[Rfam]
RNA sequence: GCAGGAGAGGUUCGCGAACUCCCUCUAUAAAAAACUAAGAGUAU
Numbered sequence: 001g002c003a004g005g006a007g008a009g010g011u012u013c014g015c016g017a018a019c020u021c022c023c024u025c026u027a028u029a030a031a032a033a034a035c036u037a038a039g040a041g042u043a044u
Base pairs, nucleotide, nucleotide: 006026007025008024009023010022016036

A member of the RNA family "PreQ1 (pre queuosine) riboswitch aptamer" from Paenibacillus sp. FSL H7-0737, 44 nucleotides long. The source organism's lineage runs through Bacteria, Bacillati, Bacilli, Caryophanales and Paenibacillus. It scores 52 bits against the family's covariance model. About the family: This family is a bacterial riboswitch that binds to the metabolite preQ1, an intermediate in the biosynthesis of the modified nucleoside queuosine from GTP. One example of this riboswitch is located in the leader of the Bacillus subtilis ykvJKLM (queCDEF) operon which encodes four genes necessary for queuosine production. PreQ1 binding to the riboswitch aptamer is thought to induce premature transcription termination within the leader to down-regulate expression of these genes. The family has 43 seed sequences and 873 matches in Rfam 15.1.